[Rfam]
RNA sequence: GUUACCGCCUCCGAUACCAGGUACGGGAGGGAGGUGCUUUGCAUGGAGUUUGCUUUAUCUUUUAUUAUUGCCGUUACGGCUGGCGUAGUUUGCCACUAUGUCAUCAAAUGGUUAGACGGCGAUAAAUAGUCGGUAACUAGCCUAUGGUCUAAGCCGCCAUUGAAAAGGAAUAGAAAAUCCUCCGGAUAGCCGUCCGGGGGAUUUUCGUCUGUCACU
Numbered sequence: 001g002u003u004a005c006c007g008c009c010u011c012c013g014a015u016a017c018c019a020g021g022u023a024c025g026g027g028a029g030g031g032a033g034g035u036g037c038u039u040u041g042c043a044u045g046g047a048g049u050u051u052g053c054u055u056u057a058u059c060u061u062u063u064a065u066u067a068u069u070g071c072c073g074u075u076a077c078g079g080c081u082g083g084c085g086u087a088g089u090u091u092g093c094c095a096c097u098a099u100g101u102c103a104u105c106a107a108a109u110g111g112u113u114a115g116a117c118g119g120c121g122a123u124a125a126a127u128a129g130u131c132g133g134u135a136a137c138u139a140g141c142c143u144a145u146g147g148u149c150u151a152a153g154c155c156g157c158c159a160u161u162g163a164a165a166a167g168g169a170a171u172a173g174a175a176a177a178u179c180c181u182c183c184g185g186a187u188a189g190c191c192g193u194c195c196g197g198g199g200g201a202u203u204u205u206c207g208u209c210u211g212u213c214a215c216u
Stems, first nucleotide, its partner, number of pairs: 005031002010027004033158003036154002045063004050057001078149003081103002084100006110142006118134001120132001162213002166210002172204001176203011
Streptococcus sRNA SpF66: a 216-nucleotide RNA sequence from Marvinbryantia formatexigens. Lineage of the source: Bacteria > Clostridia > Lachnospirales > Marvinbryantia > Marvinbryantia formatexigens. Pairs were carried over by alignment from the consensus structure, which was predicted with mfold. It scores 42 bits against the family's covariance model.